Plastid-rpl16 group II-D1 intron: a 47-nucleotide sequence from Carnegiea gigantea. Taxonomically the source falls in Carnegiea (Eukaryota, Streptophytina, Embryophyta, eudicotyledons). Plastid-rpl16 is a non-coding RNA (ncRNA) recognised in plastids. It was recognised in and intronic region of a ribosome rpl16 gene.
[Rfam]
RNA sequence: AAGAGCCUUGAGCCAAUAAACACUAAGAAGGUCAGCUCAAGAAAAAA
Number, nucleotide and partner (000 for none) at each position: 001a000002a000003g000004a000005g000006c000007c041008u040009u000010g038011a037012g036013c035014c000015a000016a032017u031018a000019a000020a000021c000022a000023c000024u000025a000026a000027g000028a000029a000030g000031g017032u016033c000034a000035g013036c012037u011038c010039a000040a008041g007042a000043a000044a000045a000046a000047a000